[Rfam]
Rfam assigns this 85-nucleotide RNA from Armadillidium nasatum to the family "mir-46/mir-47/mir-281 microRNA precursor family". Lineage of the source: Eukaryota > Arthropoda > Malacostraca > Armadillidiidae > Armadillidium. The family's consensus secondary structure was predicted with RNAalifold.

RNA sequence: ACUCCUGUACUAUCAAGAGAGCUAUCCGUCGACAGUAAUGAGACAAUAAAACUGUCAUGGAGUUGCUCUCUUUAUGGACAGGAAG
Numbered sequence: 001a002c003u004c005c006u007g008u009a010c011u012a013u014c015a016a017g018a019g020a021g022c023u024a025u026c027c028g029u030c031g032a033c034a035g036u037a038a039u040g041a042g043a044c045a046a047u048a049a050a051a052c053u054g055u056c057a058u059g060g061a062g063u064u065g066c067u068c069u070c071u072u073u074a075u076g077g078a079c080a081g082g083a084a085g
Base pairs, nucleotide, nucleotide: 015072016071017070018069020067021066022065025061026060027059028058031056032055033054035052036051